[Rfam]
RNA sequence: GGUUCCGUAGCCAAGGGGCUAAGGCAAUAGACUGCAACUCUGUGACCGCCAGUUCGAAUCUGGCCGGAACCU
Numbered sequence: 001g002g003u004u005c006c007g008u009a010g011c012c013a014a015g016g017g018g019c020u021a022a023g024g025c026a027a028u029a030g031a032c033u034g035c036a037a038c039u040c041u042g043u044g045a046c047c048g049c050c051a052g053u054u055c056g057a058a059u060c061u062g063g064c065c066g067g068a069a070c071c072u
Base pairs, nucleotide, nucleotide: 001071002070003069004068005067006066007065010025011024012023027043028042029041030040031039048064049063050062051061052060